[Rfam]
Background: The record is a 76-nucleotide RNA sequence from Pongo pygmaeus, which matches "mir-630 microRNA precursor family" in Rfam. Rfam 15.1 lists 18 matches to the family in 15 species. Rfam's curators put it in the seed alignment. The base pairs follow the family's consensus structure, which was predicted with RNAalifold.
RNA sequence: AUACUACCUCUUUGUAUCAUAUUUUGUUAUUCUGGUCUCAGAAUGACCUAGUAUUCUGUACCAGGGAAGGUAGUUC
Numbered sequence: 001a002u003a004c005u006a007c008c009u010c011u012u013u014g015u016a017u018c019a020u021a022u023u024u025u026g027u028u029a030u031u032c033u034g035g036u037c038u039c040a041g042a043a044u045g046a047c048c049u050a051g052u053a054u055u056c057u058g059u060a061c062c063a064g065g066g067a068a069g070g071u072a073g074u075u076c
Base pairs, nucleotide, nucleotide: 003074004073005072006071007070008069009068010066011065012064013063014062015060016059017058019054020053021052022051023050026047027046028045029044030043031042032041033040034039